This 222-nucleotide RNA sequence from Microvirga aerophila belongs to the Rfam family "Group II catalytic intron D1-D4-6". A reference for the family is Bonen and Vogel (2001), "The ins and outs of group II introns", Trends Genet. Taxonomically the source falls in Microvirga (Bacteria, Pseudomonadati, Alphaproteobacteria, Methylobacteriaceae). Its family is annotated with Group II intron splicing in the Gene Ontology. Rfam's curators write: Group II introns are found in rRNA, tRNA and mRNA of organelles in fungi, plants and protists, and also in mRNA in bacteria.

[Rfam]
RNA sequence: CAAGUCCACUACGAUGAAGGAGUAGCGACCCACAUCGACCCCGAGCCGUGCGAGGGCAACCGCGAGGCUGUCGUCGAAGCGUCGGCAGGGGCACGUGCAGGCCAGCCAUUGAGCCACGAUAGGGUUUUUAUCCCGGAUGCCGACACGCUCCAAUACGUGGAAGGCAACAUCCCACAGCCUGUUACCGCAAGGGCUGCGAGGAUCUGGCGUGGUCGCAGACCC
Numbered sequence: 001c002a003a004g005u006c007c008a009c010u011a012c013g014a015u016g017a018a019g020g021a022g023u024a025g026c027g028a029c030c031c032a033c034a035u036c037g038a039c040c041c042c043g044a045g046c047c048g049u050g051c052g053a054g055g056g057c058a059a060c061c062g063c064g065a066g067g068c069u070g071u072c073g074u075c076g077a078a079g080c081g082u083c084g085g086c087a088g089g090g091g092c093a094c095g096u097g098c099a100g101g102c103c104a105g106c107c108a109u110u111g112a113g114c115c116a117c118g119a120u121a122g123g124g125u126u127u128u129u130a131u132c133c134c135g136g137a138u139g140c141c142g143a144c145a146c147g148c149u150c151c152a153a154u155a156c157g158u159g160g161a162a163g164g165c166a167a168c169a170u171c172c173c174a175c176a177g178c179c180u181g182u183u184a185c186c187g188c189a190a191g192g193g194c195u196g197c198g199a200g201g202a203u204c205u206g207g208c209g210u211g212g213u214c215g216c217a218g219a220c221c222c
Stems, first nucleotide, its partner, number of pairs: 012037005019031002023190001025188002039091004045086004049081002051076003055072004060067002111214001113213006133207006139165003144159004170201002173198001175196006